[Rfam]
RNA sequence: AGGUUCACUCGACCAACACUGCGGAGCCACAAUCGGAGUUCUCGUAACUCUAGCAUAGCUCUGAGGAAGGUCCCUGGAUCCCUGGCAGCGAGUGCCGUAGUGUAAACUUGCUAUUAGCCUCCAUCGUCUUCUCGAAUUUGGAAGGGACUUGUAUCUGGCUUUCGAGCAAGAUCACAGGAUCCUCGAGUUGGGUGUGAGUGUAUUGGUCAAAGCAAAGUAAUGUGUUUGAAUCGCUUCGCCGAUUAACUCAACAGGGCCUCUUCCGAGGGAAUC
Numbered sequence: 001a002g003g004u005u006c007a008c009u010c011g012a013c014c015a016a017c018a019c020u021g022c023g024g025a026g027c028c029a030c031a032a033u034c035g036g037a038g039u040u041c042u043c044g045u046a047a048c049u050c051u052a053g054c055a056u057a058g059c060u061c062u063g064a065g066g067a068a069g070g071u072c073c074c075u076g077g078a079u080c081c082c083u084g085g086c087a088g089c090g091a092g093u094g095c096c097g098u099a100g101u102g103u104a105a106a107c108u109u110g111c112u113a114u115u116a117g118c119c120u121c122c123a124u125c126g127u128c129u130u131c132u133c134g135a136a137u138u139u140g141g142a143a144g145g146g147a148c149u150u151g152u153a154u155c156u157g158g159c160u161u162u163c164g165a166g167c168a169a170g171a172u173c174a175c176a177g178g179a180u181c182c183u184c185g186a187g188u189u190g191g192g193u194g195u196g197a198g199u200g201u202a203u204u205g206g207u208c209a210a211a212g213c214a215a216a217g218u219a220a221u222g223u224g225u226u227u228g229a230a231u232c233g234c235u236u237c238g239c240c241g242a243u244u245a246a247c248u249c250a251a252c253a254g255g256g257c258c259u260c261u262u263c264c265g266a267g268g269g270a271a272u273c
Stems, first nucleotide, its partner, number of pairs: 002273005008267004015226005022063006036050005068259003072256004084096004097111002099108003113199003122194004131187003140182003229244005
Shown here is a 273-nucleotide RNA, a member of the family "RNase MRP". The base pairs follow the family's consensus structure, which is taken from published work. The match comes from Rfam's covariance-model search (70 bits).